[Rfam]
RNA: Cyanobacterial functional RNA 1
Organism: Crocosphaera watsonii
RNA sequence: GCGGAGACAAACGUUUCCGUUCACUCCUCACACCACACUCCGCCCGGCAUUAGUUCGGGCGGUU
Numbered sequence: 001g002c003g004g005a006g007a008c009a010a011a012c013g014u015u016u017c018c019g020u021u022c023a024c025u026c027c028u029c030a031c032a033c034c035a036c037a038c039u040c041c042g043c044c045c046g047g048c049a050u051u052a053g054u055u056c057g058g059g060c061g062g063u064u
Stems, first nucleotide, its partner, number of pairs: 001020008041061007